[Rfam]
RNA: S10-Clostridia ribosomal protein leader
Organism: Butyrivibrio sp. AE2015
RNA sequence: UGAUAGCUAUGAAGCGUGAGGUUGCUGCUUUAUCCAGUUAAGCAGGUUUUCCGUGGAGCGAAUGUCUAGAGGCCAGUUGCUUUGGCCAACCAAACUGACGACAA
Numbered sequence: 001u002g003a004u005a006g007c008u009a010u011g012a013a014g015c016g017u018g019a020g021g022u023u024g025c026u027g028c029u030u031u032a033u034c035c036a037g038u039u040a041a042g043c044a045g046g047u048u049u050u051c052c053g054u055g056g057a058g059c060g061a062a063u064g065u066c067u068a069g070a071g072g073c074c075a076g077u078u079g080c081u082u083u084g085g086c087c088a089a090c091c092a093a094a095c096u097g098a099c100g101a102c103a104a
Stems, first nucleotide, its partner, number of pairs: 014054003018051004025045005063103004071087004